[Rfam]
RNA sequence: GGAGUCAGGCGGGCGACGGCCUCGGGAAACCGGGGAGGAAAGUCCGGACUGCACAGGGCAGGGUGCCAGGCGCAAGCCUGGGCGGGGCGACCCGACGGACAGGGCCACAGAAAACAAACCGCCUCGGCCGCAAGGCACGGGGUAAGGGUGAAACGGUGAGGUAAGAGCUCACCAGCGAGCGGGGCAACUCGUUCGGCUUGGUAACCCCCAUUCGCAGCAAGGCCAAAUAGGGAGGGGCUGAUCCGGCCCGGUGACCCUCCGGGUAGGCCGCCGAGAGAAAUCGUCGUACAAAGACAGAAUCCGGCUUAUAGCCUGACUCCUUUA
Numbered sequence: 001g002g003a004g005u006c007a008g009g010c011g012g013g014c015g016a017c018g019g020c021c022u023c024g025g026g027a028a029a030c031c032g033g034g035g036a037g038g039a040a041a042g043u044c045c046g047g048a049c050u051g052c053a054c055a056g057g058g059c060a061g062g063g064u065g066c067c068a069g070g071c072g073c074a075a076g077c078c079u080g081g082g083c084g085g086g087g088c089g090a091c092c093c094g095a096c097g098g099a100c101a102g103g104g105c106c107a108c109a110g111a112a113a114a115c116a117a118a119c120c121g122c123c124u125c126g127g128c129c130g131c132a133a134g135g136c137a138c139g140g141g142g143u144a145a146g147g148g149u150g151a152a153a154c155g156g157u158g159a160g161g162u163a164a165g166a167g168c169u170c171a172c173c174a175g176c177g178a179g180c181g182g183g184g185c186a187a188c189u190c191g192u193u194c195g196g197c198u199u200g201g202u203a204a205c206c207c208c209c210a211u212u213c214g215c216a217g218c219a220a221g222g223c224c225a226a227a228u229a230g231g232g233a234g235g236g237g238c239u240g241a242u243c244c245g246g247c248c249c250g251g252u253g254a255c256c257c258u259c260c261g262g263g264u265a266g267g268c269c270g271c272c273g274a275g276a277g278a279a280a281u282c283g284u285c286g287u288a289c290a291a292a293g294a295c296a297g298a299a300u301c302c303g304g305c306u307u308a309u310a311g312c313c314u315g316a317c318u319c320c321u322u323u324a
Base pairs, nucleotide, nucleotide: 001320002319003318004317005316006315007314008313009312010311011309013287014286015285016284017283018282020035021034022033023032024031025030040307041306042305044304045303046302047301048300049217050216051215052214056249057248058247059246061213062212063211064210065209066081067080068079069078070077082096083094084093085092086091097208098207102206103205104202105201106200119147120146121143122142123141124140125139126138127136128135129134155173156172157171158170159169160168175197176195177194178193179192180191181190182189183188221269222268223267224266231260232259233258234257235256236255243251244250
Rfam assigns this 324-nucleotide sequence from Armatimonadetes bacterium Uphvl-Ar2 to the family "Bacterial RNase P class A". It scores 258 bits against the family's covariance model. Pairs were carried over by alignment from the consensus structure, which is taken from published work.